[Rfam]
Rfam assigns this 95-nucleotide RNA from [Clostridium] methylpentosum to the family "SAM riboswitch aptamer (S box leader)". Its family is annotated with regulation of gene expression in the Gene Ontology. The SAM riboswitch is found upstream of a number of genes which code for proteins involved in methionine or cysteine biosynthesis in Gram-positive bacteria.
RNA sequence: GUCUUAUCAAGAGUGGUGGAGGUAACAGGACCUGUGAAGCCCGGCAACCUUUUGAGUAAGGUGCCAAAUCCUGCGGCUAUGCCGAAAGAUGAGAA
Numbered sequence: 001g002u003c004u005u006a007u008c009a010a011g012a013g014u015g016g017u018g019g020a021g022g023u024a025a026c027a028g029g030a031c032c033u034g035u036g037a038a039g040c041c042c043g044g045c046a047a048c049c050u051u052u053u054g055a056g057u058a059a060g061g062u063g064c065c066a067a068a069u070c071c072u073g074c075g076g077c078u079a080u081g082c083c084g085a086a087a088g089a090u091g092a093g094a095a
Base pairs, nucleotide, nucleotide: 002094003093004092005091006090007089008088013042015041016040017039021032022031023030026073027072028071029070043065044064045063046062048061049060069087074084075083076082077081